[Rfam]
RNA sequence: AUUGUCCUUCGGGGUCGGGUGAAAUUCCCAAUCGGCGGUGAUGAUUUAUAAUCUAAGCCCGCGAGCCUUUUGGCAGGACUUGGUGCGAUUCCAAGGCCGACAGUAUAGUCUGGAUGGGAGAAGGACGUA
Numbered sequence: 001a002u003u004g005u006c007c008u009u010c011g012g013g014g015u016c017g018g019g020u021g022a023a024a025u026u027c028c029c030a031a032u033c034g035g036c037g038g039u040g041a042u043g044a045u046u047u048a049u050a051a052u053c054u055a056a057g058c059c060c061g062c063g064a065g066c067c068u069u070u071u072g073g074c075a076g077g078a079c080u081u082g083g084u085g086c087g088a089u090u091c092c093a094a095g096g097c098c099g100a101c102a103g104u105a106u107a108g109u110c111u112g113g114a115u116g117g118g119a120g121a122a123g124g125a126c127g128u129a
Stems, first nucleotide, its partner, number of pairs: 003127008017029003031109002033099002035062004057097002067073001079095005101112003